[Rfam]
Shown here is a 97-nucleotide RNA from Apostasia shenzhenica, a member of the family "Small nucleolar RNA Z107/R87".
The family has 9 seed sequences and 783 matches in Rfam 15.1.
Its family is annotated with nucleolus and RNA processing in the Gene Ontology.
RNA sequence: GAUCGCGGAGAUGACUUCAAUUUCAAGCUCAACAGACCGGAUUGCAGGUCUCUUUUCGAGGGAUUUGCGUGUCGAUCACUCGCUUUCCUGAGCGAUC
Numbered sequence: 001g002a003u004c005g006c007g008g009a010g011a012u013g014a015c016u017u018c019a020a021u022u023u024c025a026a027g028c029u030c031a032a033c034a035g036a037c038c039g040g041a042u043u044g045c046a047g048g049u050c051u052c053u054u055u056u057c058g059a060g061g062g063a064u065u066u067g068c069g070u071g072u073c074g075a076u077c078a079c080u081c082g083c084u085u086u087c088c089u090g091a092g093c094g095a096u097c
Stems, first nucleotide, its partner, number of pairs: 001097006